[Rfam]
RNA sequence: GUUGCUUCUUAUGGUGAACUCUCUUUUAAAUAAGUUAGAGAUGUUCAAGUUUCCGAAGCAUAUAUAAAAUUAAGUCAGUUUUAUAACAGCUCGAUGUCUAUAUUUCACGGCAUCAUGCUACCUGUCUCCUGCUACAUUC
Numbered sequence: 001g002u003u004g005c006u007u008c009u010u011a012u013g014g015u016g017a018a019c020u021c022u023c024u025u026u027u028a029a030a031u032a033a034g035u036u037a038g039a040g041a042u043g044u045u046c047a048a049g050u051u052u053c054c055g056a057a058g059c060a061u062a063u064a065u066a067a068a069a070u071u072a073a074g075u076c077a078g079u080u081u082u083a084u085a086a087c088a089g090c091u092c093g094a095u096g097u098c099u100a101u102a103u104u105u106c107a108c109g110g111c112a113u114c115a116u117g118c119u120a121c122c123u124g125u126c127u128c129c130u131g132c133u134a135c136a137u138u139c
Stems, first nucleotide, its partner, number of pairs: 003060006015047005020041005074133001076131003088119003093114004

This 139-nucleotide RNA from Phtheirospermum japonicum belongs to the Rfam family "small nucleolar RNA snoR137". The family's consensus secondary structure was predicted with RNAalifold. Rfam 15.1 lists 808 matches to the family in 221 species. NCBI's taxonomy places the organism under Eukaryota, Streptophytina, Embryophyta, Euphyllophyta, Phtheirospermum. A search with the family's covariance model found it, with a score of 103 bits. Its family is annotated with RNA processing and nucleolus in the Gene Ontology.